[Rfam]
RNA sequence: UGGCAUAUAGUAGGAAUUAAACCUACGAAUUCGCCAAUUAUGAGUUGGGCUCUUUAACCAUUCAACCAUGGAUAC
Dot-bracket structure: ..(.((.(.(((((.......))))).............(((.((((((...........)))))))))).)).)
RNA: Plastid-ycf2 5UTR RNA